[Rfam]
RNA: Small nucleolar RNA SNORD111
Organism: Cavia porcellus
RNA sequence: UAGCCUGAAAUGAUGCCUAAAUUUCAUGUCUCUUCUCUGACAAUUUUGUCUGGAGAUGGUUUUUGCCUUAUUGAUCUGAUCAGGCUG
Numbered sequence: 001u002a003g004c005c006u007g008a009a010a011u012g013a014u015g016c017c018u019a020a021a022u023u024u025c026a027u028g029u030c031u032c033u034u035c036u037c038u039g040a041c042a043a044u045u046u047u048g049u050c051u052g053g054a055g056a057u058g059g060u061u062u063u064u065g066c067c068u069u070a071u072u073g074a075u076c077u078g079a080u081c082a083g084g085c086u087g
Stems, first nucleotide, its partner, number of pairs: 001087005